[Rfam]
Shown here is a 131-nucleotide sequence from Molossus molossus, a member of the family "Small nucleolar RNA SNORA38". Rfam links the family to the GO terms Cajal body, nucleolus and RNA processing. The organism belongs to Molossus, within Eukaryota. Rfam classes the family as an H/ACA-box small nucleolar RNA. Rfam describes the family as follows. ACA38 is a member of the H/ACA class of snoRNA that guide the sites of modification of uridines to pseudouridines.
RNA sequence: CCCUCCUACAAAGGUGCAUCUGUGGUUCCCUGUCUUUGGGCAUGUAAGAACUGGAGGCAAAGAAAUGUGGACUUGGAGGAUUCUAGGGCCAGCUUGCUCCCUGCAGGCUCAAUAUCAACCAUCCUAUGUGG
Numbered sequence: 001c002c003c004u005c006c007u008a009c010a011a012a013g014g015u016g017c018a019u020c021u022g023u024g025g026u027u028c029c030c031u032g033u034c035u036u037u038g039g040g041c042a043u044g045u046a047a048g049a050a051c052u053g054g055a056g057g058c059a060a061a062g063a064a065a066u067g068u069g070g071a072c073u074u075g076g077a078g079g080a081u082u083c084u085a086g087g088g089c090c091a092g093c094u095u096g097c098u099c100c101c102u103g104c105a106g107g108c109u110c111a112a113u114a115u116c117a118a119c120c121a122u123c124c125u126a127u128g129u130g131g
Base pairs, nucleotide, nucleotide: 002057003056004055005054006053015044016043019040020039021038024030025029069124070123071122073121091109092108093107094106095105096104097103